[Rfam]
RNA sequence: UCUUUUUUUCUGGGUUGCACAUCAGAAGUGUUCACAGGGCAACCUGUCAGAUUGCAAUGAAUUUGCAAAUUCUGCU
Numbered sequence: 001u002c003u004u005u006u007u008u009u010c011u012g013g014g015u016u017g018c019a020c021a022u023c024a025g026a027a028g029u030g031u032u033c034a035c036a037g038g039g040c041a042a043c044c045u046g047u048c049a050g051a052u053u054g055c056a057a058u059g060a061a062u063u064u065g066c067a068a069a070u071u072c073u074g075c076u
Stems, first nucleotide, its partner, number of pairs: 013044006021076001023074005048065006